[Rfam]
RNA sequence: CAGUCGUCCUGACUGGUAACGGUCAGAGAUCAUAAUUGGGUGAAUUGCUGGAAACCCCUUAGAGCUUUUCUUGCCACAACGUAGUUGGAAACGACAAGCGUGAUGGUUUGAUAAAAGAAAAGAUUGGGCAAUCAGCAGCCAAGCUCCUGUCUUGAAAGAGUGGAGAAGGUUCAACGACUAGGAUAGACCAUCUAAGGCGAAAGCUAUGGUGAUGAAAUCCGUAGGUGAAACAAUGGUCAUCAGCAUUGUGAAUCCGAAGUGCCCAACCCCUACUGAAUUCAGAGGGUGAAGAUAUAGUCUGGUCAUUUAUGAAAGUAAAUG
Numbered sequence: 001c002a003g004u005c006g007u008c009c010u011g012a013c014u015g016g017u018a019a020c021g022g023u024c025a026g027a028g029a030u031c032a033u034a035a036u037u038g039g040g041u042g043a044a045u046u047g048c049u050g051g052a053a054a055c056c057c058c059u060u061a062g063a064g065c066u067u068u069u070c071u072u073g074c075c076a077c078a079a080c081g082u083a084g085u086u087g088g089a090a091a092c093g094a095c096a097a098g099c100g101u102g103a104u105g106g107u108u109u110g111a112u113a114a115a116a117g118a119a120a121a122g123a124u125u126g127g128g129c130a131a132u133c134a135g136c137a138g139c140c141a142a143g144c145u146c147c148u149g150u151c152u153u154g155a156a157a158g159a160g161u162g163g164a165g166a167a168g169g170u171u172c173a174a175c176g177a178c179u180a181g182g183a184u185a186g187a188c189c190a191u192c193u194a195a196g197g198c199g200a201a202a203g204c205u206a207u208g209g210u211g212a213u214g215a216a217a218u219c220c221g222u223a224g225g226u227g228a229a230a231c232a233a234u235g236g237u238c239a240u241c242a243g244c245a246u247u248g249u250g251a252a253u254c255c256g257a258a259g260u261g262c263c264c265a266a267c268c269c270c271u272a273c274u275g276a277a278u279u280c281a282g283a284g285g286g287u288g289a290a291g292a293u294a295u296a297g298u299c300u301g302g303u304c305a306u307u308u309a310u311g312a313a314a315g316u317a318a319a320u321g
Stems, first nucleotide, its partner, number of pairs: 001015006022031001036266004041261002046137006056128003138170002145163002151158002174300001176299005269286003273282003306319005